[Rfam]
RNA: MIR396 microRNA precursor family
Organism: Vitis vinifera
Nucleotides: 119
Base pairs, nucleotide, nucleotide: 003116005114006113007112013106014105015104017102018101019100020099021098022097024095025094026093027092029090030089031088032087033086
Number, partner (000 for none) and nucleotide at each position: 001000c002000u003116u004000u005114g006113u007112a008000u009000u010000c011000u012000u013106c014105c015104a016000c017102a018101g019100c020099u021098u022097u023000c024095u025094u026093g027092a028000a029090c030089u031088g032087c033086a034000u035000u036000u037000u038000u039000c040000a041000g042000a043000c044000u045000a046000c047000u048000g049000g050000u051000g052000u053000g054000u055000u056000u057000u058000u059000g060000u061000a062000u063000g064000c065000a066000c067000u068000c069000a070000a071000a072000g073000u074000c075000a076000u077000u078000g079000u080000a081000a082000c083000a084000g085000u086033u087032g088031c089030g090029g091000u092027u093026c094025a095024a096000u097022a098021a099020a100019g101018c102017u103000g104015u105014g106013g107000g108000a109000a110000g111000a112007u113006a114005c115000c116003a117000a118000c119000a